[Rfam]
RNA sequence: CCCCUUUUCUCCGCCCCGACAAGUCCUUAUAUUGCGUAGUGCCGGUGCAAGCUGGCUAUGACGAUAAACGAGUUACGUAAUAAGCCUAUCGGACCCGGGGGCGGUACCCGGCGCCUCCACCAAAGCCCGUCAUGUCAUGGCGUGUUGCCAGGGCGGAUAGCCCGGAAUGGCGGGUUUUGGCGGGGGCGAAAUAGGAUCGACGAGGGUGUAAAGGUAAUUUCUUCGUUCGGCAUGGUACCGCCGUUAUCGGGCCGAAUCAGUAGUUGCAAAUGACAACACUGCUAUGGACAACGCUGUCGCCGCGUAAUGCGGUGCCGGUAGUCCUUUAAGUCCUGUUGGUUAGCCCCUUCAGGCGGGGUCCGGAGGCACCUGGCAACAGAAGCCUCCACU
Numbered sequence: 001c002c003c004c005u006u007u008u009c010u011c012c013g014c015c016c017c018g019a020c021a022a023g024u025c026c027u028u029a030u031a032u033u034g035c036g037u038a039g040u041g042c043c044g045g046u047g048c049a050a051g052c053u054g055g056c057u058a059u060g061a062c063g064a065u066a067a068a069c070g071a072g073u074u075a076c077g078u079a080a081u082a083a084g085c086c087u088a089u090c091g092g093a094c095c096c097g098g099g100g101g102c103g104g105u106a107c108c109c110g111g112c113g114c115c116u117c118c119a120c121c122a123a124a125g126c127c128c129g130u131c132a133u134g135u136c137a138u139g140g141c142g143u144g145u146u147g148c149c150a151g152g153g154c155g156g157a158u159a160g161c162c163c164g165g166a167a168u169g170g171c172g173g174g175u176u177u178u179g180g181c182g183g184g185g186g187c188g189a190a191a192u193a194g195g196a197u198c199g200a201c202g203a204g205g206g207u208g209u210a211a212a213g214g215u216a217a218u219u220u221c222u223u224c225g226u227u228c229g230g231c232a233u234g235g236u237a238c239c240g241c242c243g244u245u246a247u248c249g250g251g252c253c254g255a256a257u258c259a260g261u262a263g264u265u266g267c268a269a270a271u272g273a274c275a276a277c278a279c280u281g282c283u284a285u286g287g288a289c290a291a292c293g294c295u296g297u298c299g300c301c302g303c304g305u306a307a308u309g310c311g312g313u314g315c316c317g318g319u320a321g322u323c324c325u326u327u328a329a330g331u332c333c334u335g336u337u338g339g340u341u342a343g344c345c346c347c348u349u350c351a352g353g354c355g356g357g358g359u360c361c362g363g364a365g366g367c368a369c370c371u372g373g374c375a376a377c378a379g380a381a382g383c384c385u386c387c388a389c390u
Base pairs, nucleotide, nucleotide: 041056042055043054044053045052060227061226062225063224064223070220071219072218073217074216075215076214085206086205087204089203090202091201095111096110097109098108099107112188113187114186115185116184117183118182228243229242230241231240233254234253235252238250239249356371357370358369359368362387363386364385365384366383367382
RNA: Alphaproteobacteria transfer-messenger RNA